Rfam assigns this 144-nucleotide sequence from Glycine max to the family "MIR4416 microRNA precursor family". Rfam 15.1 lists 13 matches to the family in 7 species. Rfam's curators put it in the seed alignment.
[Rfam]
RNA sequence: AUCUUUGAUCUGGGUGAGAGAAACGCGUAUCGAUGAGAUUCAGGGCUUACUAGUUCACACAGUUGCAUCCACACACCAAUUGUUUUAACAAUUUGGAGUGAGUGUGUUUUGAUCGAUACGGGUCCUCUCACCUAGACUAGAGUU
Numbered sequence: 001a002u003c004u005u006u007g008a009u010c011u012g013g014g015u016g017a018g019a020g021a022a023a024c025g026c027g028u029a030u031c032g033a034u035g036a037g038a039u040u041c042a043g044g045g046c047u048u049a050c051u052a053g054u055u056c057a058c059a060c061a062g063u064u065g066c067a068u069c070c071a072c073a074c075a076c077c078a079a080u081u082g083u084u085u086u087a088a089c090a091a092u093u094u095g096g097a098g099u100g101a102g103u104g105u106g107u108u109u110u111g112a113u114c115g116a117u118a119c120g121g122g123u124c125c126u127c128u129c130a131c132c133u134a135g136a137c138u139a140g141a142g143u144u
Base pairs, nucleotide, nucleotide: 003142004141005140006139007138009136010135011134012133013132014131015130016129017128018127019126020125023123024122026120027119028118029117030116031115032114033113034112036110037109038108